[Rfam]
RNA: Purine riboswitch aptamer
Organism: Thermoflavimicrobium daqui
RNA sequence: AAUUCCGACAGAUCUAUAGCACGUAUAUGUUUAGGAAUAGGGCCUAAACGUUUCUACCCGACUACCGUAAAUAGUCAGACUACGAGCGAUGGAUUUUCUGGA
Numbered sequence: 001a002a003u004u005c006c007g008a009c010a011g012a013u014c015u016a017u018a019g020c021a022c023g024u025a026u027a028u029g030u031u032u033a034g035g036a037a038u039a040g041g042g043c044c045u046a047a048a049c050g051u052u053u054c055u056a057c058c059c060g061a062c063u064a065c066c067g068u069a070a071a072u073a074g075u076c077a078g079a080c081u082a083c084g085a086g087c088g089a090u091g092g093a094u095u096u097u098c099u100g101g102a
Base pairs, nucleotide, nucleotide: 019087020086022084023083024082025081029049030048031047032046033045034044035043058078060076061075062074063073064072